RNA sequence: AAAAAGGGCUUCUGCCGUGUGUGGCACGGGGGGGCUCCGCGCCCACCUUCGCGGAAUCGACAUCAAGAGAUUUCGGAAGCACAAUUUUUGUGAGUAGCGGGCUGCUGGUAACCGCAUGUUCCGGCGCCCUA
Numbered sequence: 001a002a003a004a005a006g007g008g009c010u011u012c013u014g015c016c017g018u019g020u021g022u023g024g025c026a027c028g029g030g031g032g033g034g035c036u037c038c039g040c041g042c043c044c045a046c047c048u049u050c051g052c053g054g055a056a057u058c059g060a061c062a063u064c065a066a067g068a069g070a071u072u073u074c075g076g077a078a079g080c081a082c083a084a085u086u087u088u089u090g091u092g093a094g095u096a097g098c099g100g101g102c103u104g105c106u107g108g109u110a111a112c113c114g115c116a117u118g119u120u121c122c123g124g125c126g127c128c129c130u131a
Stems, first nucleotide, its partner, number of pairs: 008080005013026005027051006033043003052075007099129004104125005110120003
RNA: U11 spliceosomal RNA
Organism: Rhabdornis inornatus